[Rfam]
RNA sequence: GGCGUAAAGCGCACGCAGGCGGUCGUAUCAGUCCAGGGUGACAGUUUCCGGCUUAACCGGAAAAGGACUCUGGAGACGGCACGACUUGAGGGCUUCAGAGGGAUGUGGAAUUCCAGGUGGAGUGGUGAAAUGCGUAGAGAUCUGGAAGAACACCAAAGGCGAAGGCAACAUCCUGGGGAGUCACUGACGCUCGGGUGCGAAAGCUAGGGGAGCGAACGGGAUUAGAUACCCCGGUAGUCCUAGCCGUAAACGAUGACCACUAGACGUUGGGGGUAUCGACCCCUCCAGUGUCGCAGUUAACACAAUAAGUGGUCCGCCUGGGGAGUACGGUCGCAAGAUUAAAACUCAAAGGAAU
Numbered sequence: 001g002g003c004g005u006a007a008a009g010c011g012c013a014c015g016c017a018g019g020c021g022g023u024c025g026u027a028u029c030a031g032u033c034c035a036g037g038g039u040g041a042c043a044g045u046u047u048c049c050g051g052c053u054u055a056a057c058c059g060g061a062a063a064a065g066g067a068c069u070c071u072g073g074a075g076a077c078g079g080c081a082c083g084a085c086u087u088g089a090g091g092g093c094u095u096c097a098g099a100g101g102g103a104u105g106u107g108g109a110a111u112u113c114c115a116g117g118u119g120g121a122g123u124g125g126u127g128a129a130a131u132g133c134g135u136a137g138a139g140a141u142c143u144g145g146a147a148g149a150a151c152a153c154c155a156a157a158g159g160c161g162a163a164g165g166c167a168a169c170a171u172c173c174u175g176g177g178g179a180g181u182c183a184c185u186g187a188c189g190c191u192c193g194g195g196u197g198c199g200a201a202a203g204c205u206a207g208g209g210g211a212g213c214g215a216a217c218g219g220g221a222u223u224a225g226a227u228a229c230c231c232c233g234g235u236a237g238u239c240c241u242a243g244c245c246g247u248a249a250a251c252g253a254u255g256a257c258c259a260c261u262a263g264a265c266g267u268u269g270g271g272g273g274u275a276u277c278g279a280c281c282c283c284u285c286c287a288g289u290g291u292c293g294c295a296g297u298u299a300a301c302a303c304a305a306u307a308a309g310u311g312g313u314c315c316g317c318c319u320g321g322g323g324a325g326u327a328c329g330g331u332c333g334c335a336a337g338a339u340u341a342a343a344a345c346u347c348a349a350a351g352g353a354a355u
Base pairs, nucleotide, nucleotide: 001318002317003316009315011198012197013196014195018191019190020189022085023084024083025082026081028079031077032074033073034072035071036070037069038068039067045063046062047061048060049059050058051057089185090184092181093180094179095178096177100174101173102172103171104170105169106168107151111147112146113145114144115143116142117141118140122133123132124131159166160165203244204243205242206241207240208239212238213237217233218232219231220230255314256313257312258311259310260309263292264291265290266289267288268287269286270285271284272283273282296303297302320347321346322345329340330339331338332337
The family of this 355-nucleotide part of an RNA from Ktedonobacteria bacterium brp13 is "Bacterial small subunit ribosomal RNA". The family is grouped with related families in Rfam's "SSU clan".